[Rfam]
RNA sequence: UUACAGGACGUUUUAGCUAUUAAACUAUUUUCUCCCUCUUUGUCAAAGAACAAUUUCUUCCUUGUCCGAAAGGGACAAAACAGUUAAAUAGCUAAAAAGUCCUGUAAC
Numbered sequence: 001u002u003a004c005a006g007g008a009c010g011u012u013u014u015a016g017c018u019a020u021u022a023a024a025c026u027a028u029u030u031u032c033u034c035c036c037u038c039u040u041u042g043u044c045a046a047a048g049a050a051c052a053a054u055u056u057c058u059u060c061c062u063u064g065u066c067c068g069a070a071a072g073g074g075a076c077a078a079a080a081c082a083g084u085u086a087a088a089u090a091g092c093u094a095a096a097a098a099g100u101c102c103u104g105u106a107a108c
Base pairs, nucleotide, nucleotide: 001107002106003105004104005103006102011097012096013095014094015093016092017091018090019089020088021087023085024084025083026082028080029069030068034064049059050058052056
A member of the RNA family "mir-8517 microRNA precursor family" from Plutella xylostella, 108 nucleotides long. A search with the family's covariance model found it, with a score of 76 bits. Taxonomically the source falls in Plutella (Eukaryota, Opisthokonta, Mandibulata, Neolepidoptera).